Rfam assigns this 52-nucleotide sequence to the family "ffh sRNA". The base pairs follow the family's consensus structure, which is taken from published work. The sequence is in the family's curated seed alignment.
RNA sequence: UUGGGCAGGGAUCGCCCCCCGUCAGCGCGUUGCGCCCACGGGGGCGUCUGUG
Dot-bracket structure: ...............(((((((..((((...))))..)))))))........